[Rfam]
The record is a 70-nucleotide RNA sequence from Rhabdobacter roseus, which matches "Fluoride riboswitch aptamer (crcB RNA motif)" in Rfam. The source organism's lineage runs through Bacteria, Pseudomonadati, Cytophagales, Cytophagaceae and Rhabdobacter. It scores 44 bits against the family's covariance model.
RNA sequence: UGCCACGAAGGCAAUGGUGUCUGCCUCGAACCGUCCCGCACUGCUUGGGAAUGAUGGCGCCUACGCAUUG
Numbered sequence: 001u002g003c004c005a006c007g008a009a010g011g012c013a014a015u016g017g018u019g020u021c022u023g024c025c026u027c028g029a030a031c032c033g034u035c036c037c038g039c040a041c042u043g044c045u046u047g048g049g050a051a052u053g054a055u056g057g058c059g060c061c062u063a064c065g066c067a068u069u070g
Stems, first nucleotide, its partner, number of pairs: 010025004016061006034050005